Rfam assigns this 66-nucleotide sequence from Ascidiaceihabitans donghaensis to the family "L2-Alphaproteobacteria ribosomal protein leader". The source organism's lineage runs through Bacteria, Pseudomonadati, Alphaproteobacteria, Paracoccaceae and Ascidiaceihabitans. By type it is a cis-regulatory leader. It scores 65 bits against the family's covariance model.
[Rfam]
RNA sequence: UGGCACCUACGGGGGCCUAUAACCACGGCGGGGCAACCCGUCACAUAGCAAAACGGAAGACAGACA
Numbered sequence: 001u002g003g004c005a006c007c008u009a010c011g012g013g014g015g016c017c018u019a020u021a022a023c024c025a026c027g028g029c030g031g032g033g034c035a036a037c038c039c040g041u042c043a044c045a046u047a048g049c050a051a052a053a054c055g056g057a058a059g060a061c062a063g064a065c066a
Stems, first nucleotide, its partner, number of pairs: 002017003006014003027042006